[Rfam]
RNA sequence: GUGCUUUAGGGAUGAACGAGUCCCUAAAAUUUAACUCUAAUCCACCUUAUCACUUUGUCAGCAUUUUUGUUUUGUAUCUUGCUGAUCAUUAAAGAGUGGAAUAAAU
Numbered sequence: 001g002u003g004c005u006u007u008a009g010g011g012a013u014g015a016a017c018g019a020g021u022c023c024c025u026a027a028a029a030u031u032u033a034a035c036u037c038u039a040a041u042c043c044a045c046c047u048u049a050u051c052a053c054u055u056u057g058u059c060a061g062c063a064u065u066u067u068u069g070u071u072u073u074g075u076a077u078c079u080u081g082c083u084g085a086u087c088a089u090u091a092a093a094g095a096g097u098g099g100a101a102u103a104a105a106u
Base pairs, nucleotide, nucleotide: 041100042099043098044097045096057086058085059084060083061082062081063080
A member of the RNA family "Small nucleolar RNA snoR99" from Jatropha curcas, 106 nucleotides long. The match comes from Rfam's covariance-model search (91 bits). Taxonomically the source falls in Jatropha (Eukaryota, Viridiplantae, Mesangiospermae, Jatropheae). The base pairs follow the family's consensus structure, which was predicted with WAR.